[Rfam]
RNA: Glycine riboswitch aptamer
RNA sequence: UGAAUCCGCGCGGGAGAGUUCCGGCCGGGUCGUACGCAUCUCUGUACGGCCCGCGUCACAGGAACGCCGAAGGAGCAAGUCCCUCCCUUGAAUCUCUCAGGCCCCGUACCGCGCGGGCGAG
Number, nucleotide and partner (000 for none) at each position: 001u000002g000003a000004a000005u000006c116007c115008g114009c113010g112011c111012g110013g109014g000015a000016g000017a000018g000019u064020u063021c062022c061023g000024g000025c000026c000027g000028g000029g000030u000031c000032g000033u000034a000035c000036g000037c000038a000039u000040c000041u000042c000043u000044g000045u000046a000047c000048g000049g000050c000051c000052c000053g000054c000055g000056u000057c000058a000059c000060a000061g022062g021063a020064a019065c000066g102067c101068c100069g098070a097071a000072g000073g096074a095075g094076c000077a000078a000079g089080u000081c000082c000083c000084u000085c000086c000087c000088u000089u079090g000091a000092a000093u000094c075095u074096c073097u070098c069099a000100g068101g067102c066103c000104c000105c000106g000107u000108a000109c013110c012111g011112c010113g009114c008115g007116g006117g000118c000119g000120a000121g000